About this RNA
The record is a 357-nucleotide RNA sequence from Albidovulum denitrificans, which matches "Alphaproteobacteria transfer-messenger RNA" in Rfam. Taxonomically the source falls in Albidovulum (Bacteria, Alphaproteobacteria, Rhodobacterales, Paracoccaceae). Bacterial tmRNA, also known as 10Sa RNA or SsrA, is named for its dual tRNA and mRNA-like properties. The family's RNA type in Rfam is non-coding RNA gene.
[Rfam]
RNA sequence: GAACUUGCAGCGCCCCCGGCCAGGCCCUAUAUUCACCCCGUUCGGGUUCGCCCGGACUAUGGACAUAAACGCGCUCGUAAUAAGCGGAUCGGACCCGGGGGCGGUACCCGGCGGCUCCACCAAACACCCGUUAUUGGCGGGACAUGGGGCCGAAACAGGAUCGACGAACGUCUAAAGGGGUUUGCUUUGUCCCGGUGAGGUACCACCGUUAUCGGUCCGCAAAGUACAGUUGCCAAUAACAACCGUGCUCCGGCAAUGGCUCUGGCUGCGUAAGCAGUUCGGGUCGCCGAAACUAAGUCCUUGCGCUUAGCCGCGCAAGGCGGGGUUCGCAGGCACCUGGCAACAGAAGCCUGCACU
Numbered sequence: 001g002a003a004c005u006u007g008c009a010g011c012g013c014c015c016c017c018g019g020c021c022a023g024g025c026c027c028u029a030u031a032u033u034c035a036c037c038c039c040g041u042u043c044g045g046g047u048u049c050g051c052c053c054g055g056a057c058u059a060u061g062g063a064c065a066u067a068a069a070c071g072c073g074c075u076c077g078u079a080a081u082a083a084g085c086g087g088a089u090c091g092g093a094c095c096c097g098g099g100g101g102c103g104g105u106a107c108c109c110g111g112c113g114g115c116u117c118c119a120c121c122a123a124a125c126a127c128c129c130g131u132u133a134u135u136g137g138c139g140g141g142a143c144a145u146g147g148g149g150c151c152g153a154a155a156c157a158g159g160a161u162c163g164a165c166g167a168a169c170g171u172c173u174a175a176a177g178g179g180g181u182u183u184g185c186u187u188u189g190u191c192c193c194g195g196u197g198a199g200g201u202a203c204c205a206c207c208g209u210u211a212u213c214g215g216u217c218c219g220c221a222a223a224g225u226a227c228a229g230u231u232g233c234c235a236a237u238a239a240c241a242a243c244c245g246u247g248c249u250c251c252g253g254c255a256a257u258g259g260c261u262c263u264g265g266c267u268g269c270g271u272a273a274g275c276a277g278u279u280c281g282g283g284u285c286g287c288c289g290a291a292a293c294u295a296a297g298u299c300c301u302u303g304c305g306c307u308u309a310g311c312c313g314c315g316c317a318a319g320g321c322g323g324g325g326u327u328c329g330c331a332g333g334c335a336c337c338u339g340g341c342a343a344c345a346g347a348a349g350c351c352u353g354c355a356c357u
Base pairs, nucleotide, nucleotide: 040057041056042055043054044053045052046051061192062191063190064189065188071185072184073181074180075179076178085170086169089167090166091165095111096110097109098108099107112152113151114150115149116148117147118146193208194207195206196205199218200217202216203215204214323338324337325336326335329354330353331352332351333350334349